[Rfam]
RNA sequence: AGCCGCUAUACGCUUGGGUAUAGCGAAGGGCCACUUGGGGCCGACAGU
Numbered sequence: 001a002g003c004c005g006c007u008a009u010a011c012g013c014u015u016g017g018g019u020a021u022a023g024c025g026a027a028g029g030g031c032c033a034c035u036u037g038g039g040g041c042c043g044a045c046a047g048u
Stems, first nucleotide, its partner, number of pairs: 004025008029042004